This 71-nucleotide RNA sequence from Listeria grayi belongs to the Rfam family "Listeria sRNA sbrA". Pairs were carried over by alignment from the consensus structure, which was predicted with WAR.
RNA sequence: AUACAUCUAGAUCCAUACCCCUAAACUCCCUAGAUGUUUUUGAGUAGUACGCUUUGUACUACUCUUUUUUU
Numbered sequence: 001a002u003a004c005a006u007c008u009a010g011a012u013c014c015a016u017a018c019c020c021c022u023a024a025a026c027u028c029c030c031u032a033g034a035u036g037u038u039u040u041u042g043a044g045u046a047g048u049a050c051g052c053u054u055u056g057u058a059c060u061a062c063u064c065u066u067u068u069u070u071u
Base pairs, nucleotide, nucleotide: 004036005035006034007033008032009031042064043063044062045061046060047059048058049057050056051055